[Rfam]
RNA sequence: GAGCAAAUAUUUCAACGAUUUGUACUGUUAAAAACUGGCAUGACUGAUAGAAUAACCAGAUAGAGGCACAGCACCAUGCCAUAUGUACCUUAUGCUAAUGUAUAUGGACUAGUUUUUAACAAUACAAAUGGAUAAAAUUUUUAGCUA
Numbered sequence: 001g002a003g004c005a006a007a008u009a010u011u012u013c014a015a016c017g018a019u020u021u022g023u024a025c026u027g028u029u030a031a032a033a034a035c036u037g038g039c040a041u042g043a044c045u046g047a048u049a050g051a052a053u054a055a056c057c058a059g060a061u062a063g064a065g066g067c068a069c070a071g072c073a074c075c076a077u078g079c080c081a082u083a084u085g086u087a088c089c090u091u092a093u094g095c096u097a098a099u100g101u102a103u104a105u106g107g108a109c110u111a112g113u114u115u116u117u118a119a120c121a122a123u124a125c126a127a128a129u130g131g132a133u134a135a136a137a138u139u140u141u142u143a144g145c146u147a
Stems, first nucleotide, its partner, number of pairs: 002146003005142003009138004014133001016131001018129007026121001028119006
RNA: MIR7502 microRNA precursor family
Organism: Gossypium harknessii